Overview:
Rfam assigns this 150-nucleotide sequence from Escherichia coli to the family "Group II catalytic intron D1-D4-7". The sequence is in the family's curated seed alignment. NCBI's taxonomy places the organism under Bacteria, Pseudomonadati, Gammaproteobacteria, Enterobacteriaceae, Escherichia. A reference for the family is Bonen and Vogel (2001), "The ins and outs of group II introns", Trends Genet.

RNA sequence: CCAGCUAUCCCAUUAGCUGUAGCCUACCGGGACAGGCGCUGCCGGCAACGGCGGGGUCUGAAGCUCCCGGGACAACGAGAGCCGGGCGUCAGCCCGGGUAAAGCCCCGUGAGGGGCUUUACCUUGCUGCAAGCAUCAUGUGGCAGGAGAG
Numbered sequence: 001c002c003a004g005c006u007a008u009c010c011c012a013u014u015a016g017c018u019g020u021a022g023c024c025u026a027c028c029g030g031g032a033c034a035g036g037c038g039c040u041g042c043c044g045g046c047a048a049c050g051g052c053g054g055g056g057u058c059u060g061a062a063g064c065u066c067c068c069g070g071g072a073c074a075a076c077g078a079g080a081g082c083c084g085g086g087c088g089u090c091a092g093c094c095c096g097g098g099u100a101a102a103g104c105c106c107c108g109u110g111a112g113g114g115g116c117u118u119u120a121c122c123u124u125g126c127u128g129c130a131a132g133c134a135u136c137a138u139g140u141g142g143c144a145g146g147a148g149a150g
Base pairs, nucleotide, nucleotide: 002019003018004017005016006015007014028069029068030067031066032065033060034059035058036057037056039054040053041052042051043050044049082097083096084095085094086093087092098121099120100119101118106113107112125143126142127141128140129139130138
Group II introns are found in rRNA, tRNA and mRNA of organelles in fungi, plants and protists, and also in mRNA in bacteria. The pairing is the family consensus, mapped onto this sequence.